[Rfam]
Nucleotides: 587
Stems, first nucleotide, its partner, number of pairs: 001583008010575003015569001022404004027400002029396005035201004042193007051154001053152004058147009068137001078136005085119003094113008158181003162178001164176004204216004217239006240385001242342002248300006254280002257275006281290002305328004311322003330339003353379007361372002413454003417451001418448007428438002465540001466538004470532001471529005478503002481498006505519005546564004550559003
Number, partner (000 for none) and nucleotide at each position: 001583c002582g003581u004580a005579c006578a007577c008576c009000c010575g011574g012573a013000c014000a015569g016000a017000a018000a019000g020000a021000c022404c023403c024402u025401a026000u027400g028399a029396a030395g031394c032393u033392u034000u035201a036200c037199u038198g039000u040000a041000g042193c043192u044191u045190g046189g047188u048187a049000u050000u051154g052000u053152g054151u055150u056149c057000g058147g059146g060145c061144u062143c063142u064141g065140a066139a067000u068137g069000c070000g071000c072000a073000g074000g075000a076000u077000a078136g079135g080134u081133g082132g083000g084000a085119g086118a087117c088000a089000u090000u091000g092000a093000u094113c095112u096111a097110g098109u099108a100107c101106u102000u103000g104000u105000g106101g107100g108099u109098a110097c111096u112095a113094g114000g115000g116000a117087g118086u119085c120000a121000a122000c123000g124000g125000u126000g127000a128000g129000a130000u131000a132082c133081c134080a135079c136078u137068c138000u139066u140065u141064c142063a143062g144061g145060g146059c147058u148000a149056g150055g151054a152053u153000u154051c155000u156000a157000a158181c159180g160179c161000u162178u163000a164176c165175c166174c167173g168000u169000c170000a171000g172000c173167c174166g175165g176164g177000g178162a179160g180159c181158g182000g183000a184000c185000a186000g187048u188047a189046u190045c191044a192043g193042g194000u195000g196000g197000g198038c199037a200036g201035u202000u203000u204216g205215a206214c207213u208000g209000g210000g211000g212000c213207g214206g215205u216204c217239g218238c219237c220236u221235c222234c223000u224000a225000a226000a227000a228000g229000g230000u231000a232000a233000c234222g235221g236220a237219g238218g239217c240385g241000c242342g243341c244000a245000a246000a247000g248300g249299u250298u251297c252296c253295c254280u255279c256000a257275g258274g259273c260272u261271g262270g263000u264000u265000g266000g267000a268000a269000a270262u271261c272260a273259g274258c275257c276000g277000a278000c279255g280254a281290g282289u283000g284000u285000a286000a287000a288000g289282g290281c291000a292000g293000a294000a295253g296252g297251g298250a299249g300248c301000u302000u303000g304000a305328c306327u307326g308325u309000g310000a311322g312321a313320c314000c315000u316000a317000c318000a319000a320313g321312u322311c323000g324000a325308a326307c327306a328305g329000g330339g331338a332337c333000g334000a335000a336000a337332g338331u339330c340000g341243g342242c343000c344000u345000u346000a347000g348000u349000g350000a351000u352000c353379c354378g355377a356376c357375g358374g359373u360000u361372c362371u363000g364000a365000g366000u367000g368000g369000a370000a371362g372361g373359g374358c375357c376356g377355u378354c379353g380000c381000u382000c383000a384000a385240c386000g387000g388000a389000u390000a391000a392033a393032a394031g395030u396029u397000a398000c399028u400027c401025u402024a403023g404022g405000g406000a407000u408000a409000a410000c411000a412000g413454g414453c415452u416000g417451a418448u419447c420446u421445c422444c423443c424442c425000c426000a427000a428438g429437a430000g431000u432000u433000c434000a435000c436000a437429u438428c439000g440000a441000c442424g443423g444422g445421g446420a447419g448418g449000u450000u451417u452415g453414g454413c455000a456000c457000c458000u459000c460000g461000a462000u463000g464000u465540c466538g467537g468536c469535u470532c471529a472528u473527c474526g475525c476000a477000a478503c479502c480000u481498g482497g483496g484495g485494c486493u487000g488000a489000a490000g491000u492000c493486g494485g495484u496483c497482c498481c499000a500000a501000g502479g503478g504000u505519u506518g507517g508516g509515c510000u511000g512000u513000u514000c515509g516508c517507c518506c519505a520000u521000u522000a523000a524000a525475g526474c527473g528472g529471u530000a531000c532470g533000c534000g535469a536468g537467c538466u539000g540465g541000g542000u543000u544000c545000a546564g547563a548562a549561c550559g551558u552557c553000g554000u555000g556000a557552g558551a559550c560000a561549g562548u563547u564546c565000g566000g567000u568000c569015c570000a571000u572000a573012u574011c575010c576008g577007g578006u579005g580004u581003a582002c583001g584000c585000g586000c587000a

This 587-nucleotide part of an RNA from cyanobiont of Ornithocercus magnificus belongs to the Rfam family "Bacterial large subunit ribosomal RNA".
The family's consensus secondary structure is taken from published work.
A search with the family's covariance model found it, with a score of 2792 bits.
The family has 102 seed sequences and 51,934 matches in Rfam 15.1.
NCBI's taxonomy places the organism under Bacteria, Bacillati, Cyanobacteriota, Cyanophyceae, Synechococcales.